[Rfam]
RNA sequence: AUCAUGAAAUCUGAAAAAUGAGAAAAAGAGUAGGAA
Numbered sequence: 001a002u003c004a005u006g007a008a009a010u011c012u013g014a015a016a017a018a019u020g021a022g023a024a025a026a027a028g029a030g031u032a033g034g035a036a
Stems, first nucleotide, its partner, number of pairs: 002021004010035003
RNA: DUF805b RNA
Organism: Cocos nucifera